[Rfam]
Rfam assigns this 112-nucleotide RNA from Musa balbisiana to the family "Plastid-psbA-1 3UTR RNA".
RNA sequence: UCGAAGUUUCAUCUACCAAUGGAUAAGAUUUUUUGUCUUAGUGUAUACGAAUCGUUGAACCAAGUAGCCAACCCCAUAUCUUGCUAAAGCAGAUCUUGGGUAUUGCCACUUU
Dot-bracket structure: .......(((((......)))))......................................((((.((.(((.(.(.((((.........)))).).).)).).)).)))).

NCBI's taxonomy places the organism under Eukaryota, Streptophytina, Spermatophyta, Liliopsida, Musa. Plastid psbA-1 is a non-coding RNA (ncRNA) present in plastids.